[Rfam]
RNA sequence: UUGACUUCCCGUGGAUGCAACCCUAAAUUAAGGAGUGAGGGUUAGGGAGAGGUUUCCCCCUCCCCCUGGUGUCUUAGUAAGCCUGGAAGCUAAUCACUAAGAGAAUCACCAGUAUGAUGACCAGUCUCAUCAUAACCCUUUCCUUUUU
Numbered sequence: 001u002u003g004a005c006u007u008c009c010c011g012u013g014g015a016u017g018c019a020a021c022c023c024u025a026a027a028u029u030a031a032g033g034a035g036u037g038a039g040g041g042u043u044a045g046g047g048a049g050a051g052g053u054u055u056c057c058c059c060c061u062c063c064c065c066c067u068g069g070u071g072u073c074u075u076a077g078u079a080a081g082c083c084u085g086g087a088a089g090c091u092a093a094u095c096a097c098u099a100a101g102a103g104a105a106u107c108a109c110c111a112g113u114a115u116g117a118u119g120a121c122c123a124g125u126c127u128c129a130u131c132a133u134a135a136c137c138c139u140u141u142c143c144u145u146u147u148u
Stems, first nucleotide, its partner, number of pairs: 031144004037140006045064003066112004113134007
RNA: Short Intergenic Abundant RNA